[Rfam]
The family of this 238-nucleotide sequence from Paenibacillus nasutitermitis is "c-di-AMP riboswitch aptamer (ydaO/yuaA leader)". Rfam's curators write: This family represents a conserved RNA structure found upstream of the ydaO and yuaA genes in Bacillus subtilis and related genes in other bacteria.
RNA sequence: CUUUAACGCGAGCCGAAACUUAUUCGUACGGGGGAGCUUAUUAAGGCAAGAAUUACGUAUUCUCCGGCAAAUUAAAGCGUAAUUCUUCCUGCGGAAUAUCAUCCAAAAUGGCAGUAGUGGAUGGGUGAAAAUCCGCUGGGGGUGAAUCGCUGAGGCGUAGCCGAUACGCUGCAGUGUAGGGUUGAAACUCCUCAAUCCGAAUCCGACAACUAACCUCGCAGGCCGCAUGCCUGAUCAG
Numbered sequence: 001c002u003u004u005a006a007c008g009c010g011a012g013c014c015g016a017a018a019c020u021u022a023u024u025c026g027u028a029c030g031g032g033g034g035a036g037c038u039u040a041u042u043a044a045g046g047c048a049a050g051a052a053u054u055a056c057g058u059a060u061u062c063u064c065c066g067g068c069a070a071a072u073u074a075a076a077g078c079g080u081a082a083u084u085c086u087u088c089c090u091g092c093g094g095a096a097u098a099u100c101a102u103c104c105a106a107a108a109u110g111g112c113a114g115u116a117g118u119g120g121a122u123g124g125g126u127g128a129a130a131a132u133c134c135g136c137u138g139g140g141g142g143u144g145a146a147u148c149g150c151u152g153a154g155g156c157g158u159a160g161c162c163g164a165u166a167c168g169c170u171g172c173a174g175u176g177u178a179g180g181g182u183u184g185a186a187a188c189u190c191c192u193c194a195a196u197c198c199g200a201a202u203c204c205g206a207c208a209a210c211u212a213a214c215c216u217c218g219c220a221g222g223c224c225g226c227a228u229g230c231c232u233g234a235u236c237a238g
Stems, first nucleotide, its partner, number of pairs: 012223003018027002029218005038139002140204003148176004179198004